The record is a 111-nucleotide RNA sequence from Agaribacter marinus, which matches "Ribosomal S15 leader" in Rfam. Rfam's curators write: The E. coli Ribosomal S15 gene 5' UTR can form two alternative structures. One that is a series of three hairpins, The other includes a pseudoknot. The family's consensus secondary structure is taken from published work. The organism belongs to Agaribacter, within Bacteria.

[Rfam]
RNA sequence: GAAUGGCACUGAAUUAGUGAUCGGGCCAUUUAUCAUUCAUUUUUGGAGAAAACUAUGUCACUAAAUACACAAGAAACAGCUGCAAUUAUUGCAGAAUACGGUCGCGAAGCU
Numbered sequence: 001g002a003a004u005g006g007c008a009c010u011g012a013a014u015u016a017g018u019g020a021u022c023g024g025g026c027c028a029u030u031u032a033u034c035a036u037u038c039a040u041u042u043u044u045g046g047a048g049a050a051a052a053c054u055a056u057g058u059c060a061c062u063a064a065a066u067a068c069a070c071a072a073g074a075a076a077c078a079g080c081u082g083c084a085a086u087u088a089u090u091g092c093a094g095a096a097u098a099c100g101g102u103c104g105c106g107a108a109g110c111u
Base pairs, nucleotide, nucleotide: 009024010023011022012021042065043064044063045062046061048059